The family of this 58-nucleotide RNA sequence from Canis lupus is "mir-455 microRNA precursor family". It is one of the family's seed sequences.
[Rfam]
RNA sequence: UAUGUGCCUUUGGACUACAUCGUGGAAGCCAGCACCAUGCAGUCCAUGGGCAUAUACA
Numbered sequence: 001u002a003u004g005u006g007c008c009u010u011u012g013g014a015c016u017a018c019a020u021c022g023u024g025g026a027a028g029c030c031a032g033c034a035c036c037a038u039g040c041a042g043u044c045c046a047u048g049g050g051c052a053u054a055u056a057c058a
Stems, first nucleotide, its partner, number of pairs: 001056009011046006018039003022035003